[Rfam]
Nucleotides: 099
Stems, first nucleotide, its partner, number of pairs: 004093005010086004014081002018076005025067004035060004043052003
Number, partner (000 for none) and nucleotide at each position: 001000c002000g003000a004093g005092a006091g007090g008089u009000u010086g011085g012084c013083g014081c015080g016000g017000g018076c019075a020074g021073g022072c023000a024000c025067c026066u027065c028064g029000c030000c031000a032000a033000c034000c035060c036059g037058g038057u039000c040000a041000g042000g043052u044051c045050c046000g047000g048000a049000a050045g051044g052043a053000a054000g055000c056000a057038g058037c059036c060035g061000u062000a063000a064028c065027g066026a067025g068000c069000c070000a071000c072022g073021c074020u075019u076018g077000g078000g079000u080015c081014g082000u083013u084012g085011u086010c087000c088000a089008a090007c091006c092005u093004c094000u095000c096000a097000c098000c099000u
The record is a 99-nucleotide RNA from Roseovarius halotolerans, which matches "Bacterial small signal recognition particle RNA" in Rfam. A search with the family's covariance model found it, with a score of 55 bits. NCBI's taxonomy places the organism under Bacteria, Pseudomonadota, Rhodobacterales, Roseobacteraceae, Roseovarius.